[Rfam]
RNA: Glycine riboswitch aptamer
Organism: Pseudomonas sp. C27(2019)
RNA sequence: UGCGCGCUCGCAGGAGAGAGAGCAGACACAGAUCUGCUCCGCCGAAGGCGCAAACUCCCAUAAACGCUCAGGCUCAUGUACUGCGAAACAACU
Numbered sequence: 001u002g003c004g005c006g007c008u009c010g011c012a013g014g015a016g017a018g019a020g021a022g023c024a025g026a027c028a029c030a031g032a033u034c035u036g037c038u039c040c041g042c043c044g045a046a047g048g049c050g051c052a053a054a055c056u057c058c059c060a061u062a063a064a065c066g067c068u069c070a071g072g073c074u075c076a077u078g079u080a081c082u083g084c085g086a087a088a089c090a091a092c093u
Base pairs, nucleotide, nucleotide: 008086009085010084011083012082013081020039021038022037023036041073042072043071044069045068048067049066050065054061